[Rfam]
RNA: PyrR binding site
Organism: Acetivibrio saccincola
RNA sequence: AAAACCUUUAAAAGAGUCCAGAGAGGCUGGAAAGGUUAGAGUGUAAAAGUUAAACAUGGUAUUAUACUUUUGUACCUUAGCUUCUUGCCGUCUGGCGGGAAGUUUUAUUUAU
Numbered sequence: 001a002a003a004a005c006c007u008u009u010a011a012a013a014g015a016g017u018c019c020a021g022a023g024a025g026g027c028u029g030g031a032a033a034g035g036u037u038a039g040a041g042u043g044u045a046a047a048a049g050u051u052a053a054a055c056a057u058g059g060u061a062u063u064a065u066a067c068u069u070u071u072g073u074a075c076c077u078u079a080g081c082u083u084c085u086u087g088c089c090g091u092c093u094g095g096c097g098g099g100a101a102g103u104u105u106u107a108u109u110u111a112u
Stems, first nucleotide, its partner, number of pairs: 003037007015028004041075010053063002079104011